Shown here is a 352-nucleotide RNA from Bowmanella pacifica, a member of the family "Bacterial RNase P class A". NCBI's taxonomy places the organism under Bacteria, Pseudomonadota, Gammaproteobacteria, Alteromonadales, Bowmanella.

RNA sequence: GGAGUUGGCCAGGCAAUCGCCGCUCGCGUAAGCGGGGGGAGGAAAGUCCGGGCUCCAUAGGGCAGGGUGCCAGGUAACGCCUGGGCGGCGCAAGCCGACGACAAGUGCAGCAGAGAGUAGACCGCCAACCCCGGAUUUAUCCGGGCGGUAAGGGUGAAAGGGUGCGGUAAGAGCGCACCGCGCAGCUGGUAACAGUUUGUGGCAAGGUAAACUCCACCCGGAGCAAGACCAAAUAGGGUUCCUUGGCGUGGCCCGCGUCGGAACCGGGUAGGUUGCUUGAGCCAGUGAGUAAUUGCUGGCCUAGAUGAAUGAUUGCCCUCGACAGAACCCGGCUUAUCGGCCAACUCCACUC
Numbered sequence: 001g002g003a004g005u006u007g008g009c010c011a012g013g014c015a016a017u018c019g020c021c022g023c024u025c026g027c028g029u030a031a032g033c034g035g036g037g038g039g040a041g042g043a044a045a046g047u048c049c050g051g052g053c054u055c056c057a058u059a060g061g062g063c064a065g066g067g068u069g070c071c072a073g074g075u076a077a078c079g080c081c082u083g084g085g086c087g088g089c090g091c092a093a094g095c096c097g098a099c100g101a102c103a104a105g106u107g108c109a110g111c112a113g114a115g116a117g118u119a120g121a122c123c124g125c126c127a128a129c130c131c132c133g134g135a136u137u138u139a140u141c142c143g144g145g146c147g148g149u150a151a152g153g154g155u156g157a158a159a160g161g162g163u164g165c166g167g168u169a170a171g172a173g174c175g176c177a178c179c180g181c182g183c184a185g186c187u188g189g190u191a192a193c194a195g196u197u198u199g200u201g202g203c204a205a206g207g208u209a210a211a212c213u214c215c216a217c218c219c220g221g222a223g224c225a226a227g228a229c230c231a232a233a234u235a236g237g238g239u240u241c242c243u244u245g246g247c248g249u250g251g252c253c254c255g256c257g258u259c260g261g262a263a264c265c266g267g268g269u270a271g272g273u274u275g276c277u278u279g280a281g282c283c284a285g286u287g288a289g290u291a292a293u294u295g296c297u298g299g300c301c302u303a304g305a306u307g308a309a310u311g312a313u314u315g316c317c318c319u320c321g322a323c324a325g326a327a328c329c330c331g332g333c334u335u336a337u338c339g340g341c342c343a344a345c346u347c348c349a350c351u352c
Stems, first nucleotide, its partner, number of pairs: 001348010011337001012317007020039002023036005044335003048332005053223004060254004065219005070084005085099001086097004100214002105212002107208002122153002124149003130145006161179006180203001181201005186195003227274004237265006245259005281300008